RNA sequence: AUCCGUGGAUAUCGGGUGCGCCGCCCUCCUCCUCCGGCUGUACUCCUUCGCAGCUGCUGGCCGCGCACUGCACAGGCGGUAUCCUCGCUUCGUGUGCAGAAAAGCUCGCC
Numbered sequence: 001a002u003c004c005g006u007g008g009a010u011a012u013c014g015g016g017u018g019c020g021c022c023g024c025c026c027u028c029c030u031c032c033u034c035c036g037g038c039u040g041u042a043c044u045c046c047u048u049c050g051c052a053g054c055u056g057c058u059g060g061c062c063g064c065g066c067a068c069u070g071c072a073c074a075g076g077c078g079g080u081a082u083c084c085u086c087g088c089u090u091c092g093u094g095u096g097c098a099g100a101a102a103a104g105c106u107c108g109c110c
Stems, first nucleotide, its partner, number of pairs: 007084007015069006023061003035056007070095004074090004
RNA: IMPDH RNA